[Rfam]
RNA sequence: AACUUUAUAAAAAGCGUGUUGCAACCUUGUGAAGAGCGUCUAACCAACGCUGCAAGGGCGCCUCGGAACAGCUGAGGAGUCGUCAGAAGGAUACUUCAAAACGGCUCAACUUUCACAGAAAUCGAAAGACGAAGUGAGAAGGAGUAAAACUCCAACAGAGAAGAGGUGGCGCAAGGGCAAUAUGAUUAUAAGACACGAUUCCGGUUUUCCCAACAAUAGACGCCUCGGUGAGGAAUAACCCUAUAGACCACAUCCGCAAGAUGUGAGCCAAUGUAGGGAAUGCAAAAGCAAUGGGAAUGCCUCGACACUACGUCAGAAAUGGCGUAGAACCGGUUUGCGGUACGAGUAGCCUAAGAGGCGUAAUAUUUCUAAAAUAGUUGACAUUAAUUAUUGGGCAAAUGUUAUUAAUCUGAAUGGUUGGUGAAAGUUAGGGGUACAUGAAUCCCCUUCGAGACAGUGGUUCCGAAAGGAACUGGGGUAAGAAGUUAUACGGCGACGGCUGUAUGGCUCAGACUUAUCUCCUCGGUGGUCGAAUAAUAAAGGUUAUUGAGGGAGUAUAGCGAAGGCUAGCAAUAUACUUUUUAUAAAG
Numbered sequence: 001a002a003c004u005u006u007a008u009a010a011a012a013a014g015c016g017u018g019u020u021g022c023a024a025c026c027u028u029g030u031g032a033a034g035a036g037c038g039u040c041u042a043a044c045c046a047a048c049g050c051u052g053c054a055a056g057g058g059c060g061c062c063u064c065g066g067a068a069c070a071g072c073u074g075a076g077g078a079g080u081c082g083u084c085a086g087a088a089g090g091a092u093a094c095u096u097c098a099a100a101a102c103g104g105c106u107c108a109a110c111u112u113u114c115a116c117a118g119a120a121a122u123c124g125a126a127a128g129a130c131g132a133a134g135u136g137a138g139a140a141g142g143a144g145u146a147a148a149a150c151u152c153c154a155a156c157a158g159a160g161a162a163g164a165g166g167u168g169g170c171g172c173a174a175g176g177g178c179a180a181u182a183u184g185a186u187u188a189u190a191a192g193a194c195a196c197g198a199u200u201c202c203g204g205u206u207u208u209c210c211c212a213a214c215a216a217u218a219g220a221c222g223c224c225u226c227g228g229u230g231a232g233g234a235a236u237a238a239c240c241c242u243a244u245a246g247a248c249c250a251c252a253u254c255c256g257c258a259a260g261a262u263g264u265g266a267g268c269c270a271a272u273g274u275a276g277g278g279a280a281u282g283c284a285a286a287a288g289c290a291a292u293g294g295g296a297a298u299g300c301c302u303c304g305a306c307a308c309u310a311c312g313u314c315a316g317a318a319a320u321g322g323c324g325u326a327g328a329a330c331c332g333g334u335u336u337g338c339g340g341u342a343c344g345a346g347u348a349g350c351c352u353a354a355g356a357g358g359c360g361u362a363a364u365a366u367u368u369c370u371a372a373a374a375u376a377g378u379u380g381a382c383a384u385u386a387a388u389u390a391u392u393g394g395g396c397a398a399a400u401g402u403u404a405u406u407a408a409u410c411u412g413a414a415u416g417g418u419u420g421g422u423g424a425a426a427g428u429u430a431g432g433g434g435u436a437c438a439u440g441a442a443u444c445c446c447c448u449u450c451g452a453g454a455c456a457g458u459g460g461u462u463c464c465g466a467a468a469g470g471a472a473c474u475g476g477g478g479u480a481a482g483a484a485g486u487u488a489u490a491c492g493g494c495g496a497c498g499g500c501u502g503u504a505u506g507g508c509u510c511a512g513a514c515u516u517a518u519c520u521c522c523u524c525g526g527u528g529g530u531c532g533a534a535u536a537a538u539a540a541a542g543g544u545u546a547u548u549g550a551g552g553g554a555g556u557a558u559a560g561c562g563a564a565g566g567c568u569a570g571c572a573a574u575a576u577a578c579u580u581u582u583u584a585u586a587a588a589g
Stems, first nucleotide, its partner, number of pairs: 010583005020573001025057005036050004059168006075111002078106002081103003086097004112138005122129002141153005178570001180548001186541002196339002201333006207297006223233004239278006249265005256283003299359005310325005343427001349422003353418001409513004431448004450525003453474001459473001476522003481516002485509001487506003491502004558569004